[Rfam]
RNA sequence: AUGGCCAGCAGUUUCGCGAUAUAGGGGAUCAACGGCAGGUUUAAGAUCAGCAGCACCAGGUUGCCGAUGAACAUGGACAUGAUAACGGCCCAGAAAAUCUGCGGAUCGUCGAUCAUCAGGCGUGGGCC
Number, nucleotide and partner (000 for none) at each position: 001a000002u000003g000004g017005c016006c000007a014008g013009c000010a000011g000012u000013u008014u007015c000016g005017c004018g000019a000020u000021a000022u000023a000024g000025g000026g128027g127028a000029u125030c124031a123032a000033c122034g121035g000036c119037a000038g114039g113040u112041u000042u000043a109044a000045g107046a106047u105048c104049a000050g102051c101052a100053g099054c000055a000056c000057c000058a000059g000060g000061u093062u092063g091064c000065c000066g000067a000068u000069g000070a000071a000072c000073a083074u082075g000076g000077a000078c000079a000080u000081g000082a074083u073084a000085a000086c000087g000088g000089c000090c000091c063092a062093g061094a000095a000096a000097a000098u000099c053100u052101g051102c050103g000104g048105a047106u046107c045108g000109u043110c000111g000112a040113u039114c038115a000116u000117c000118a000119g036120g000121c034122g033123u031124g030125g029126g000127c027128c026
RNA: Ruegeria cis8 sRNA
Organism: Halocynthiibacter styelae